[Rfam]
RNA sequence: CAGUAGAUGCACCCUGAUCCAAUCCCCUGCCACUAGGUCAGGGGAUUUUUUU
Numbered sequence: 001c002a003g004u005a006g007a008u009g010c011a012c013c014c015u016g017a018u019c020c021a022a023u024c025c026c027c028u029g030c031c032a033c034u035a036g037g038u039c040a041g042g043g044g045a046u047u048u049u050u051u052u
Base pairs, nucleotide, nucleotide: 003012004011024044025043026042027041028040029039030037031036
Rfam assigns this 52-nucleotide sequence from Desertifilum tharense to the family "Nitrogen stress-induced RNA 1". Rfam 15.1 lists 962 matches to the family in 163 species. The source organism's lineage runs through Bacteria, Bacillati, Cyanophyceae, Desertifilales and Desertifilum tharense.